RNA sequence: CUCUUAUCAAGAGCAGGUGGAGGGAUUUUGGCCCGAUGAAGCCCAGCAACCGACCGUAAUACCAUCGCGAGAUGGGGCGUCCACGUCAAGUGAGAGUGGGAGCCUUGACAUAUAGUCAAGCACGGCACGGUGCUAAUUCCAGCGGAACGUAUUUUAUUUGACGUUCGCAAGAUAAGAG
Numbered sequence: 001c002u003c004u005u006a007u008c009a010a011g012a013g014c015a016g017g018u019g020g021a022g023g024g025a026u027u028u029u030g031g032c033c034c035g036a037u038g039a040a041g042c043c044c045a046g047c048a049a050c051c052g053a054c055c056g057u058a059a060u061a062c063c064a065u066c067g068c069g070a071g072a073u074g075g076g077g078c079g080u081c082c083a084c085g086u087c088a089a090g091u092g093a094g095a096g097u098g099g100g101a102g103c104c105u106u107g108a109c110a111u112a113u114a115g116u117c118a119a120g121c122a123c124g125g126c127a128c129g130g131u132g133c134u135a136a137u138u139c140c141a142g143c144g145g146a147a148c149g150u151a152u153u154u155u156a157u158u159u160g161a162c163g164u165u166c167g168c169a170a171g172a173u174a175a176g177a178g
Stems, first nucleotide, its partner, number of pairs: 001178008013044001016043003022034003028142004045134004050130002052126001054124001138170001143167004148163002

Annotation:
SAM riboswitch aptamer (S box leader): a 178-nucleotide RNA from Baia soyae. The organism belongs to Baia, within Bacteria. Rfam links the family to the GO term regulation of gene expression.